[Rfam]
RNA sequence: UGUACGAAAAGGCAAAAUCAUUGAAAAGUGGUGGCGCAAAACUAUAGGGGCUAAGGUGAAAAUACUAUGCUAGCCAGUUAUCGAA
Numbered sequence: 001u002g003u004a005c006g007a008a009a010a011g012g013c014a015a016a017a018u019c020a021u022u023g024a025a026a027a028g029u030g031g032u033g034g035c036g037c038a039a040a041a042c043u044a045u046a047g048g049g050g051c052u053a054a055g056g057u058g059a060a061a062a063u064a065c066u067a068u069g070c071u072a073g074c075c076a077g078u079u080a081u082c083g084a085a
Stems, first nucleotide, its partner, number of pairs: 012037002017032006040079004047075002049071003056065003

The record is an 85-nucleotide RNA sequence from Domibacillus iocasae, which matches "c-di-GMP-I riboswitch aptamer" in Rfam. Taxonomically the source falls in Domibacillus (Bacteria, Bacillati, Caryophanales, Bacillaceae). The family's consensus secondary structure is taken from published work. About the family: GEMM was predicted in a large-scale screen for bacterial structured RNA regulatory elements.